U11 spliceosomal RNA: a 134-nucleotide sequence from Pipistrellus kuhlii. Rfam classes the family as a spliceosomal small nuclear RNA. On this family, see Montzka and Steitz, Proc Natl Acad Sci U S A 1988: "Additional low-abundance human small nuclear ribonucleoproteins: U11, U12, etc". Rfam links the family to the GO terms U11 snRNP, pre-mRNA 5'-splice site binding and mRNA 5'-splice site recognition.
RNA sequence: GUGAAGGGCUUCUGUCGGGAGUGGCCCACGGAGGGCAGCUUGAUUGCUCUGUGCGCGGAAUCGACAUCAAGAGAUUUCCGAAACGUGAUUUUUGUGUGUCUGAGCAGCUGGUGAUCAUUGGUCCUGAUGCCCAC
Numbered sequence: 001g002u003g004a005a006g007g008g009c010u011u012c013u014g015u016c017g018g019g020a021g022u023g024g025c026c027c028a029c030g031g032a033g034g035g036c037a038g039c040u041u042g043a044u045u046g047c048u049c050u051g052u053g054c055g056c057g058g059a060a061u062c063g064a065c066a067u068c069a070a071g072a073g074a075u076u077u078c079c080g081a082a083a084c085g086u087g088a089u090u091u092u093u094g095u096g097u098g099u100c101u102g103a104g105c106a107g108c109u110g111g112u113g114a115u116c117a118u119u120g121g122u123c124c125u126g127a128u129g130c131c132c133a134c
Base pairs, nucleotide, nucleotide: 008084010082011081012080014025015024016023017022027055029053030052032050033049034048035047036046037045038044057078058077059076060075061074062073102132104130105129107128109126110125111124113123114122115121116120